[Rfam]
RNA sequence: CUGGCCGUGAGGCGGCAGUGAAGAAAGCGGGACUGCAAAAUCCGGUACUGACGGACAGAAACUGCAUAAGAGGCAGGAAGUCGUGGGUAAACAAGCACCUCUUUGCAACGCCCCUGACCAACAAACGACCUUGUGUAGAUGCAGCAGGAAUCGGAGGAAGGAAGGUGCU
Numbered sequence: 001c002u003g004g005c006c007g008u009g010a011g012g013c014g015g016c017a018g019u020g021a022a023g024a025a026a027g028c029g030g031g032a033c034u035g036c037a038a039a040a041u042c043c044g045g046u047a048c049u050g051a052c053g054g055a056c057a058g059a060a061a062c063u064g065c066a067u068a069a070g071a072g073g074c075a076g077g078a079a080g081u082c083g084u085g086g087g088u089a090a091a092c093a094a095g096c097a098c099c100u101c102u103u104u105g106c107a108a109c110g111c112c113c114c115u116g117a118c119c120a121a122c123a124a125a126c127g128a129c130c131u132u133g134u135g136u137a138g139a140u141g142c143a144g145c146a147g148g149a150a151u152c153g154g155a156g157g158a159a160g161g162a163a164g165g166u167g168c169u
Stems, first nucleotide, its partner, number of pairs: 001015002004013003027169001030166001036161001041155005046149001048147003062144006073136003077132002080129004085113004092105003